A member of the RNA family "MIR480 microRNA precursor family" from Populus trichocarpa, 140 nucleotides long. The sequence is in the family's curated seed alignment. The base pairs follow the family's consensus structure, which was predicted with WAR. Gene Ontology terms of the family: RISC complex and miRNA-mediated post-transcriptional gene silencing.
RNA sequence: UAAUAUGUUUGGGGUUGAUCCUUGUUUAGUUAUAAUAGACCCACACCUGACUGCUUAGAAUUAUUUGUUAUCGCAUAUCCGACUACAUUAUUGACGUUGAAAAACAGAGAACUACUACAUCAUUGACGUUGAACCAUAAA
Numbered sequence: 001u002a003a004u005a006u007g008u009u010u011g012g013g014g015u016u017g018a019u020c021c022u023u024g025u026u027u028a029g030u031u032a033u034a035a036u037a038g039a040c041c042c043a044c045a046c047c048u049g050a051c052u053g054c055u056u057a058g059a060a061u062u063a064u065u066u067g068u069u070a071u072c073g074c075a076u077a078u079c080c081g082a083c084u085a086c087a088u089u090a091u092u093g094a095c096g097u098u099g100a101a102a103a104a105c106a107g108a109g110a111a112c113u114a115c116u117a118c119a120u121c122a123u124u125g126a127c128g129u130u131g132a133a134c135c136a137u138a139a140a
Stems, first nucleotide, its partner, number of pairs: 004138004008133002012129001014127002018123002023119003027114005